[Rfam]
RNA sequence: AAGAGCCUCGGGCCAAUAAAAAAGAUUGAGAAGGUUGACUCAAAAACGAA
Numbered sequence: 001a002a003g004a005g006c007c008u009c010g011g012g013c014c015a016a017u018a019a020a021a022a023a024g025a026u027u028g029a030g031a032a033g034g035u036u037g038a039c040u041c042a043a044a045a046a047c048g049a050a
Stems, first nucleotide, its partner, number of pairs: 008043001010041003014037004

Shown here is a 50-nucleotide RNA from Rhizophora stylosa, a member of the family "Plastid-rpl16 group II-D1 intron". Rfam links the family to the GO term Group II intron splicing. The literature on the family includes a 2023 paper in Plant Commun by Richter et al., "Retrograde signaling in plants: A critical review focusing on the GUN pathway and beyond". NCBI's taxonomy places the organism under Eukaryota, Tracheophyta, Magnoliopsida, Malpighiales, Rhizophora. Plastid-rpl16 is a non-coding RNA (ncRNA) recognised in plastids. It was recognised in and intronic region of a ribosome rpl16 gene.